[Rfam]
RNA: Small nucleolar RNA SNORA13
Organism: Leptobrachium leishanense
RNA sequence: UGCCCUUGUGUUACCCAUUCAUUUUUUAAAGUGAUGAAUGUGGCGUCAAACAGGGCAGAAAUUAAACUCCAUGCUAUCCAAGGUGCUUUGGACUUUUAUUUCCAUGUCCACAGCACAGGUCUGCAUAGAGACAAUA
Dot-bracket structure: .(((((..((.(.((((((((((.........)))))))).)).).))...)))))...........((.((((........(((((...((........)).........)))))......)))).)).......